[Rfam]
RNA sequence: CCCCACCACACCUGCAUUGUACACACUGUGCGAGGAGUGUGUGCACAGCGCAUACAAUGUGGAUGCGGUGGGG
Numbered sequence: 001c002c003c004c005a006c007c008a009c010a011c012c013u014g015c016a017u018u019g020u021a022c023a024c025a026c027u028g029u030g031c032g033a034g035g036a037g038u039g040u041g042u043g044c045a046c047a048g049c050g051c052a053u054a055c056a057a058u059g060u061g062g063a064u065g066c067g068g069u070g071g072g073g
Stems, first nucleotide, its partner, number of pairs: 012062002015059007024050001026048006

The family of this 73-nucleotide sequence from Electrophorus electricus is "mir-460 microRNA precursor family". Rfam 15.1 lists 1,029 matches to the family in 498 species. Its family is annotated with RISC complex and miRNA-mediated post-transcriptional gene silencing in the Gene Ontology. A reference for the family is Xu et al. (2006), "Identification of microRNAs from different tissues of chicken embryo and adult chicken", FEBS Lett.